This 132-nucleotide RNA from Xiphorhynchus elegans belongs to the Rfam family "Small nucleolar RNA SNORA1". Rfam links the family to the GO terms nucleolus and RNA processing. From the family's description: ACA1 is a member of the H/ACA class of snoRNA that guide the sites of modification of uridines to pseudouridines. The base pairs follow the family's consensus structure, which was predicted with PFOLD. Taxonomically the source falls in Xiphorhynchus (Eukaryota, Deuterostomia, Theropoda, Australaves).
RNA sequence: UGCCUCGUUCUUCAGCAAGUAGGCACAACCUGCUCUGUGUCUGAAUUGAAAAACGUGGCUAGAGGAGUAACAGGUUAUGCUUUCCUCACUGCACAGUUAAUUGCAGUGGUGACAAUGAGACCUGUGACAAGU
Numbered sequence: 001u002g003c004c005u006c007g008u009u010c011u012u013c014a015g016c017a018a019g020u021a022g023g024c025a026c027a028a029c030c031u032g033c034u035c036u037g038u039g040u041c042u043g044a045a046u047u048g049a050a051a052a053a054c055g056u057g058g059c060u061a062g063a064g065g066a067g068u069a070a071c072a073g074g075u076u077a078u079g080c081u082u083u084c085c086u087c088a089c090u091g092c093a094c095a096g097u098u099a100a101u102u103g104c105a106g107u108g109g110u111g112a113c114a115a116u117g118a119g120a121c122c123u124g125u126g127a128c129a130a131g132u
Stems, first nucleotide, its partner, number of pairs: 002059003006055003021042007070125005084111001086109004